RNA: Bacterial large subunit ribosomal RNA, nucleotides 2650 to 3008
RNA sequence: AGAGCAUUGAGGGGACCUUUCCCUAGUACGAGAGGACCGGGAAGGACGCACCUCUGGUGUACCAGUUGUCGUGCCCGCGGCAAACGCUGGGUAGCCAAGUGCGGAGCGGAUAACUGCUGAAAGCAUCUAAGUAGGAAGCCCACCUCAGGAUGAGUGCUCUCCCACUCGUACUUCCUUGGGAGGCUUUGGGCGCGGAGCGGAAAAAGCCAAGGCAACGACAACCCCGCGAAACGCAACAAAAGUCUCCGAUUCGAUAACCCGAGGUAAGGUCACGGCAAGACGAGCCGUUUCUCACUACGAUAGGUGCUAAGUGGAAGUGCAGUAAUGUAUGCAGCUGAGGCAUCCUAACAGACCGAGAG
Number, nucleotide and partner (000 for none) at each position: 001a160002g159003a158004g157005c156006a155007u154008u153009g000010a000011g146012g145013g144014g143015a000016c000017c045018u044019u043020u042021c041022c040023c039024u000025a000026g000027u000028a000029c000030g000031a000032g000033a000034g000035g000036a000037c000038c000039g023040g022041g021042a020043a019044g018045g017046a000047c103048g102049c101050a100051c099052c000053u000054c000055u097056g096057g095058u000059g000060u000061a000062c090063c089064a088065g087066u086067u082068g081069u080070c079071g078072u077073g000074c000075c000076c000077g072078c071079g070080g069081c068082a067083a000084a000085c000086g066087c065088u064089g063090g062091g000092u000093a000094g000095c057096c056097a055098a000099g051100u050101g049102c048103g047104g000105a000106g000107c000108g140109g139110a000111u000112a000113a000114c134115u133116g132117c131118u130119g000120a000121a000122a000123g000124c000125a000126u000127c000128u000129a000130a118131g117132u116133a115134g114135g000136a000137a000138g000139c109140c108141c000142a000143c014144c013145u012146c011147a000148g000149g000150a000151u000152g000153a008154g007155u006156g005157c004158u003159c002160u001161c000162c000163c263164a000165c261166u000167c000168g000169u000170a000171c000172u000173u000174c000175c000176u000177u000178g000179g000180g000181a000182g000183g000184c000185u000186u000187u000188g000189g000190g000191c000192g000193c000194g000195g000196a000197g000198c000199g000200g000201a000202a000203a000204a000205a000206g000207c000208c000209a000210a000211g000212g000213c000214a000215a000216c000217g000218a000219c000220a000221a000222c000223c000224c000225c000226g000227c000228g000229a000230a000231a000232c000233g000234c000235a000236a000237c000238a000239a000240a000241a000242g000243u000244c000245u000246c000247c000248g000249a000250u000251u000252c000253g000254a000255u000256a000257a000258c000259c000260c000261g165262a000263g163264g000265u356266a000267a000268g354269g353270u352271c351272a288273c287274g286275g285276c284277a000278a000279g000280a000281c000282g000283a000284g276285c275286c274287g273288u272289u000290u000291c000292u000293c000294a000295c000296u000297a000298c000299g000300a000301u347302a346303g345304g343305u342306g341307c340308u339309a000310a336311g335312u000313g000314g000315a000316a000317g330318u329319g328320c327321a326322g000323u000324a000325a000326u321327g320328u319329a318330u317331g000332c000333a000334g000335c311336u310337g000338a000339g308340g307341c306342a305343u304344c000345c303346u302347a301348a000349c000350a000351g271352a270353c269354c268355g000356a265357g000358a000359g000